This 302-nucleotide RNA from Rahnella aquatilis belongs to the Rfam family "ryfA RNA".

RNA sequence: CCGGGCCUUUACGCCGUCUUAGCAAACGGGCACCGGUUUCAGGAAAGGAUGUCCAACGACCGUCAACGCAGGCGCAGACUAGCGCUUGUUUUCACGGAGAUAUCACCGGUGGUGUUAACGUGAAGCGGUCUUUGCAAGGACCGCACAAUGAAACGGUACAUCUGUAUCUUUAUCGUUGUCACCGGCGCGGCAAUGUUUCAGGGCAAAGGAAGUUGGAGUAUCUCCAAUAAUUUUCUCUCUGUAACAAUUGACGCAUCGGGCAAGUAAGCCAGAAAGCCGUCCCGUAAGGGACGGCUUUCUUU
Numbered sequence: 001c002c003g004g005g006c007c008u009u010u011a012c013g014c015c016g017u018c019u020u021a022g023c024a025a026a027c028g029g030g031c032a033c034c035g036g037u038u039u040c041a042g043g044a045a046a047g048g049a050u051g052u053c054c055a056a057c058g059a060c061c062g063u064c065a066a067c068g069c070a071g072g073c074g075c076a077g078a079c080u081a082g083c084g085c086u087u088g089u090u091u092u093c094a095c096g097g098a099g100a101u102a103u104c105a106c107c108g109g110u111g112g113u114g115u116u117a118a119c120g121u122g123a124a125g126c127g128g129u130c131u132u133u134g135c136a137a138g139g140a141c142c143g144c145a146c147a148a149u150g151a152a153a154c155g156g157u158a159c160a161u162c163u164g165u166a167u168c169u170u171u172a173u174c175g176u177u178g179u180c181a182c183c184g185g186c187g188c189g190g191c192a193a194u195g196u197u198u199c200a201g202g203g204c205a206a207a208g209g210a211a212g213u214u215g216g217a218g219u220a221u222c223u224c225c226a227a228u229a230a231u232u233u234u235c236u237c238u239c240u241g242u243a244a245c246a247a248u249u250g251a252c253g254c255a256u257c258g259g260g261c262a263a264g265u266a267a268g269c270c271a272g273a274a275a276g277c278c279g280u281c282c283c284g285u286a287a288g289g290g291a292c293g294g295c296u297u298u299c300u301u302u
Base pairs, nucleotide, nucleotide: 007047008046009045010044012042014029015028016027017026030037031036060185061184069088070087071086072085073084074083075082091124092123093122094121095120096119099116101114102113103112104111105110125144126143127142128141129140130139131138145179146178147177148176149175150174151173153170155168156167157166158165159164187265188264194262195261196260197259215225216224217223218222240253241252242251272300274297275296276295277294278293279292280291281290282289
About the family: This family consists of a number of bacterial RNA genes of 305 bases in length. The ryfA RNA gene is present in E. coli, Shigella flexneri and Salmonella species where it is found between the ydaN and dbpA genes. The function of this RNA is unknown. The match comes from Rfam's covariance-model search (210 bits). Lineage of the source: Bacteria > Pseudomonadota > Gammaproteobacteria > Enterobacterales > Rahnella aquatilis. A reference for the family is Rivas et al. (2001), "Computational identification of noncoding RNAs in E. coli by comparative genomics", Curr Biol.